The record is a 31-nucleotide RNA from Sciurus carolinensis, which matches "Iron response element II" in Rfam. The family's RNA type in Rfam is cis-regulatory element. Rfam describes the family as follows. IRE, TFRC, SLC40A1, SDHB, SLC11A2, CDC42BPA, ACO2, ALAS2_H.SAPIENS, CDC14A, EPAS1, ALAS2, qoxD, Hao1, NDUFS1, transferrin, Aconitate. Rfam links the family to the GO term response to iron ion.
RNA sequence: UUCCCAUCAGCAACAGGGCUUGCUAUGGCAG
Numbered sequence: 001u002u003c004c005c006a007u008c009a010g011c012a013a014c015a016g017g018g019c020u021u022g023c024u025a026u027g028g029c030a031g
Stems, first nucleotide, its partner, number of pairs: 001031002004028004009024005014018001